Shown here is a 115-nucleotide RNA sequence from Anaerococcus vaginalis, a member of the family "FMN riboswitch aptamer (RFN element)".
RNA sequence: AAAUAUCUUCAGGGUGAGGUUUGAUUCCUAACCGGCAGUUAAAGUCUGCGAGUUUUUUACUGAAUGGGUGAAAUUCCCAUACCGACAGUUAUAGUCUGGAUGAGAGAAGAUAUUC
Numbered sequence: 001a002a003a004u005a006u007c008u009u010c011a012g013g014g015u016g017a018g019g020u021u022u023g024a025u026u027c028c029u030a031a032c033c034g035g036c037a038g039u040u041a042a043a044g045u046c047u048g049c050g051a052g053u054u055u056u057u058u059a060c061u062g063a064a065u066g067g068g069u070g071a072a073a074u075u076c077c078c079a080u081a082c083c084g085a086c087a088g089u090u091a092u093a094g095u096c097u098g099g100a101u102g103a104g105a106g107a108a109g110a111u112a113u114u115c
Stems, first nucleotide, its partner, number of pairs: 003113008017029003031095002033084002035049004044082002052060002064080005086098003
It scores 106 bits against the family's covariance model.
Lineage of the source: Bacteria > Bacillota > Tissierellales > Anaerococcus > Anaerococcus vaginalis.